[Rfam]
Nucleotides: 097
Stems, first nucleotide, its partner, number of pairs: 002096001005093001009090002024080005030074001031067007042056002046052002
Number, partner (000 for none) and nucleotide at each position: 001000u002096a003000u004000u005093a006000u007000g008000a009090g010089c011000g012000g013000u014000a015000a016000g017000u018000c019000c020000g021000c022000u023000g024080u025079g026078g027077g028076u029000u030074c031067c032066u033065u034064u035063g036062g037061u038000g039000u040000u041000c042056c043055c044000u045000u046052c047051c048000a049000u050000a051047g052046g053000u054000u055043g056042g057000c058000u059000a060000a061037g062036c063035c064034a065033g066032a067031g068000g069000g070000u071000g072000a073000u074030g075000c076028a077027c078026c079025c080024a081000u082000a083000g084000g085000g086000c087000a088000c089010g090009c091000u092000c093005u094000u095000u096002u097000u
Shown here is a 97-nucleotide RNA from Dissulfurispira thermophila, a member of the family "DUF3800-V RNA". The family's RNA type in Rfam is small RNA. A search with the family's covariance model found it, with a score of 68 bits.